[Rfam]
Fst antitoxin sRNA: a 92-nucleotide sequence from Staphylococcus epidermidis. Gene Ontology term of the family: mRNA binding. About the family: It is located on the opposite strand of SprA1 sRNA. It is one of the family's seed sequences.
RNA sequence: UGCAAUAGUGUGGGGAUUUUUAUGUGUGUCUAUGGUUGCCUAUUUAUUAUUGCAAUUACAUAUCCAAUGAGUAAAUAAUGCAAUAAUACAAC
Numbered sequence: 001u002g003c004a005a006u007a008g009u010g011u012g013g014g015g016a017u018u019u020u021u022a023u024g025u026g027u028g029u030c031u032a033u034g035g036u037u038g039c040c041u042a043u044u045u046a047u048u049a050u051u052g053c054a055a056u057u058a059c060a061u062a063u064c065c066a067a068u069g070a071g072u073a074a075a076u077a078a079u080g081c082a083a084u085a086a087u088a089c090a091a092c
Stems, first nucleotide, its partner, number of pairs: 008089003026039003030035001049084006058072002